Background
The record is a 90-nucleotide RNA from Brassica carinata, which matches "small nucleolar RNA snoR114" in Rfam. The family's RNA type in Rfam is C/D-box small nucleolar RNA. It scores 52 bits against the family's covariance model. Gene Ontology terms of the family: RNA processing and nucleolus.
RNA sequence: GAGCGAUGAGGAUUUGGUGCUAAAGCGAUGGUUGGGUCCUUCGCAAACUUCUGAUUCAACGGAUGAUAUUCUAGCCCUGUUACUGAGCUC
Numbered sequence: 001g002a003g004c005g006a007u008g009a010g011g012a013u014u015u016g017g018u019g020c021u022a023a024a025g026c027g028a029u030g031g032u033u034g035g036g037u038c039c040u041u042c043g044c045a046a047a048c049u050u051c052u053g054a055u056u057c058a059a060c061g062g063a064u065g066a067u068a069u070u071c072u073a074g075c076c077c078u079g080u081u082a083c084u085g086a087g088c089u090c
Stems, first nucleotide, its partner, number of pairs: 001090004